[Rfam]
RNA sequence: AACUGACACUCUCCAACGGUAGCAAGUCUUGCUCCGACAUUUGGACGUGGUGCCAUGAC
Number, nucleotide and partner (000 for none) at each position: 001a000002a000003c000004u000005g000006a000007c049008a048009c047010u000011c000012u044013c043014c000015a042016a041017c000018g035019g034020u000021a033022g032023c031024a030025a029026g000027u000028c000029u025030u024031g023032c022033u021034c019035c018036g000037a000038c000039a000040u000041u016042u015043g013044g012045a000046c000047g009048u008049g007050g000051u000052g000053c000054c000055a000056u000057g000058a000059c000
Overview: Rfam assigns this 59-nucleotide RNA from Shewanella baltica to the family "Selenocysteine insertion sequence 3". On this family, see Huttenhofer et al., RNA 1996: "Solution structure of mRNA hairpins promoting selenocysteine incorporation in Escherichia coli and their base-specific interaction with special elongation factor SELB". Rfam 15.1 lists 640 matches to the family in 593 species. Rfam classes the family as a cis-regulatory element. Its family is annotated with selenocysteine incorporation in the Gene Ontology.